[Rfam]
RNA sequence: CAUUUAUCGGUGACAGUGCUCACCACAUUUG
Numbered sequence: 001c002a003u004u005u006a007u008c009g010g011u012g013a014c015a016g017u018g019c020u021c022a023c024c025a026c027a028u029u030u031g
Stems, first nucleotide, its partner, number of pairs: 001031002005027001007025001009024005014018001
Dot-bracket structure: ((..(.(.((((((...).)))))).)..))
Iron response element II: a 31-nucleotide sequence from Felis catus. The family's consensus secondary structure is taken from published work. The family has 30 seed sequences and 5,197 matches in Rfam 15.1. A search with the family's covariance model found it, with a score of 30 bits. Rfam classes the family as a cis-regulatory element. From the family's description: IRE, TFRC, SLC40A1, SDHB, SLC11A2, CDC42BPA, ACO2, ALAS2_H.SAPIENS, CDC14A, EPAS1, ALAS2, qoxD, Hao1, NDUFS1, transferrin, Aconitate. The literature on the family includes a 2001 paper in J Biol Chem by Lin et al., "Regulation of the 75-kDa subunit of mitochondrial complex I by iron".